Description:
The record is a 140-nucleotide RNA sequence from Lipotes vexillifer, which matches "Small nucleolar RNA SNORA4" in Rfam. It scores 127 bits against the family's covariance model. It is annotated as an H/ACA-box small nucleolar RNA. From the family's description: ACA4 is a member of the H/ACA class of snoRNA that guide the sites of modification of uridines to pseudouridines. The organism belongs to Lipotes, within Eukaryota.
RNA sequence: UCACCAAAAGUUCAUGUGGGGGGAAGGUUUUAUAAUAACCUUUACCAAUUUUGGGCUAUUUGGGAGAAUAAAGAAAAGACCACACUCCACAGUGAGCUAUACCAUUUAGUAUAGUUCAUUACUAUUUUGUGGCCUACAUG
Numbered sequence: 001u002c003a004c005c006a007a008a009a010g011u012u013c014a015u016g017u018g019g020g021g022g023g024a025a026g027g028u029u030u031u032a033u034a035a036u037a038a039c040c041u042u043u044a045c046c047a048a049u050u051u052u053g054g055g056c057u058a059u060u061u062g063g064g065a066g067a068a069u070a071a072a073g074a075a076a077a078g079a080c081c082a083c084a085c086u087c088c089a090c091a092g093u094g095a096g097c098u099a100u101a102c103c104a105u106u107u108a109g110u111a112u113a114g115u116u117c118a119u120u121a122c123u124a125u126u127u128u129g130u131g132g133c134c135u136a137c138a139u140g
Stems, first nucleotide, its partner, number of pairs: 004063005012054003018050002022046002025043001026040004077135002080132005091120012